[Rfam]
The family of this 48-nucleotide sequence from Enamovirus AGV is "Exoribonuclease-resistant RNA (xrRNA) plant-infecting virus (class 3)".
Rfam classes the family as a cis-regulatory element.
Rfam describes the family as follows. Exoribonuclease-resistant RNA (xrRNA) plant-infecting virus (class 3) is a ncRNA that was reported in Plant viruses.
Rfam's curators put it in the seed alignment.
Its family is annotated with viral RNA genome replication in the Gene Ontology.
NCBI's taxonomy places the organism under Viruses, Pisuviricota, Pisoniviricetes, Enamovirus, Enamovirus AGV.
RNA sequence: AACCGAGCCACCUAUCAGGCUGCAAUGAGUGGACGGUAAGACCUGGCA
Number, nucleotide and partner (000 for none) at each position: 001a037002a000003c035004c000005g000006a000007g000008c032009c031010a000011c000012c027013u000014a000015u046016c045017a044018g043019g042020c000021u000022g000023c000024a000025a000026u000027g012028a000029g000030u000031g009032g008033a000034c000035g003036g000037u001038a000039a000040g000041a000042c019043c018044u017045g016046g015047c000048a000